[Rfam]
Description: mir-233 microRNA precursor family: a 63-nucleotide sequence from Caenorhabditis brenneri. For this family Rfam cites "Repertoire and evolution of miRNA genes in four divergent nematode species" (de Wit et al., Genome Res, 2009). Gene Ontology terms of the family: RISC complex and miRNA-mediated post-transcriptional gene silencing. The family's consensus secondary structure was predicted with RNAalifold. Rfam 15.1 lists 8 matches to the family in 8 species.
RNA sequence: UCGCCCAUCCCGUUGUUCCAAUAUUCCAACAACAAGUGAUUAUUGAGCAAUGCGCAUGUGCGG
Numbered sequence: 001u002c003g004c005c006c007a008u009c010c011c012g013u014u015g016u017u018c019c020a021a022u023a024u025u026c027c028a029a030c031a032a033c034a035a036g037u038g039a040u041u042a043u044u045g046a047g048c049a050a051u052g053c054g055c056a057u058g059u060g061c062g063g
Stems, first nucleotide, its partner, number of pairs: 001063004006058003010054001011052008020044004025039002